[Rfam]
RNA sequence: UUGAAGUAAAGAAACACUUAUGUAAAGAAAAGAGCACUAAAUAAAGGAACAAUAACCAAUUUCUUAUUCUAUCAAGAGUGUUGGUUAUUGCUCCUUU
Numbered sequence: 001u002u003g004a005a006g007u008a009a010a011g012a013a014a015c016a017c018u019u020a021u022g023u024a025a026a027g028a029a030a031a032g033a034g035c036a037c038u039a040a041a042u043a044a045a046g047g048a049a050c051a052a053u054a055a056c057c058a059a060u061u062u063c064u065u066a067u068u069c070u071a072u073c074a075a076g077a078g079u080g081u082u083g084g085u086u087a088u089u090g091c092u093c094c095u096u097u
Stems, first nucleotide, its partner, number of pairs: 043097006050090006057083003061078005